[Rfam]
PyrR binding site: a 108-nucleotide sequence from Lacticaseibacillus paracasei. This family represents the PyrR binding site and terminator structure. This RNA structure is found upstream of a variety of genes involved in pyrimidine biosynthesis and transport. The alignment also includes a portion of the antiterminator structure. Taxonomically the source falls in Lacticaseibacillus paracasei (Bacteria, Bacillati, Bacillota, Bacilli). For this family Rfam cites "Molecular recognition of pyr mRNA by the Bacillus subtilis attenuation regulatory protein PyrR" (Bonner et al., Nucleic Acids Res, 2001). The base pairs follow the family's consensus structure, which is taken from published work.

RNA sequence: AGCACCUUUAACUAAGUCCAGUGAGGCUUAGAAGGUCCAUUCCGCUGCGGCGGAUUAUUCAGGCUACGGUCGCCUUCUAUCCCAAAUUGGAUUGAAGGCGACUUUUUU
Numbered sequence: 001a002g003c004a005c006c007u008u009u010a011a012c013u014a015a016g017u018c019c020a021g022u023g024a025g026g027c028u029u030a031g032a033a034g035g036u037c038c039a040u041u042c043c044g045c046u047g048c049g050g051c052g053g054a055u056u057a058u059u060c061a062g063g064c065u066a067c068g069g070u071c072g073c074c075u076u077c078u079a080u081c082c083c084a085a086a087u088u089g090g091a092u093u094g095a096a097g098g099c100g101a102c103u104u105u106u107u108u
Stems, first nucleotide, its partner, number of pairs: 004036006013030006042053004068103010079092003